RNA sequence: ACGGGUCAAAUGUAGUAGGGAACGAACCAGACCCUUUGUGAAAGGAGAGAUACUUCCCGGGCGGAAAGCCCGAAACCGCCCUUUGUGGCCACGGCACGGACGCUGCUUGCAUGGCGGGGUAUUGCGCUAUCCCCGUUUCAUGUGUCGGGCCAAAGUAGUUUAUACGCGCACCUACAAGACAACUAUGCGGAGGGCGAAUACUUUUUAUUAUGACC
Numbered sequence: 001a002c003g004g005g006u007c008a009a010a011u012g013u014a015g016u017a018g019g020g021a022a023c024g025a026a027c028c029a030g031a032c033c034c035u036u037u038g039u040g041a042a043a044g045g046a047g048a049g050a051u052a053c054u055u056c057c058c059g060g061g062c063g064g065a066a067a068g069c070c071c072g073a074a075a076c077c078g079c080c081c082u083u084u085g086u087g088g089c090c091a092c093g094g095c096a097c098g099g100a101c102g103c104u105g106c107u108u109g110c111a112u113g114g115c116g117g118g119g120u121a122u123u124g125c126g127c128u129a130u131c132c133c134c135g136u137u138u139c140a141u142g143u144g145u146c147g148g149g150c151c152a153a154a155g156u157a158g159u160u161u162a163u164a165c166g167c168g169c170a171c172c173u174a175c176a177a178g179a180c181a182a183c184u185a186u187g188c189g190g191a192g193g194g195c196g197a198a199u200a201c202u203u204u205u206u207a208u209u210a211u212g213a214c215c
Stems, first nucleotide, its partner, number of pairs: 004033004059071004078195009087151004093146005102110002113137007155186005161181001162173001
Dot-bracket structure: ...((((......................)))).........................((((.....))))......(((((((((((((..(((((....((.....))..(((((((...........)))))))....))))).))))...(((((.((..........).......)))))))))))))))....................
Annotation: A member of the RNA family "RT-2 RNA", 215 nucleotides long. Rfam classes the family as a small RNA.